[Rfam]
RNA sequence: AUUGACACAUAGGAGUGCAUUUUGCUGAGAUCGUCUAGCAUAGACGAAAUCCUCAACACCUGAUCUAGUUAACACUAGCGUAGGGAUUGUGACUAAAAGUUAA
Numbered sequence: 001a002u003u004g005a006c007a008c009a010u011a012g013g014a015g016u017g018c019a020u021u022u023u024g025c026u027g028a029g030a031u032c033g034u035c036u037a038g039c040a041u042a043g044a045c046g047a048a049a050u051c052c053u054c055a056a057c058a059c060c061u062g063a064u065c066u067a068g069u070u071a072a073c074a075c076u077a078g079c080g081u082a083g084g085g086a087u088u089g090u091g092a093c094u095a096a097a098a099g100u101u102a103a
Base pairs, nucleotide, nucleotide: 006091007090008089009088011053012052013051014050016047017025018024019023032046033045034044035043036042059084060083061082062081065078066077067076068075
Background
Rfam assigns this 103-nucleotide RNA from Streptococcus sp. sy004 to the family "TPP riboswitch aptamer (THI element)". The match comes from Rfam's covariance-model search (72 bits). The source organism's lineage runs through Bacteria, Bacillati, Bacilli, Lactobacillales and Streptococcus. Rfam links the family to the GO term thiamine pyrophosphate binding. Pairs were carried over by alignment from the consensus structure, which is taken from published work.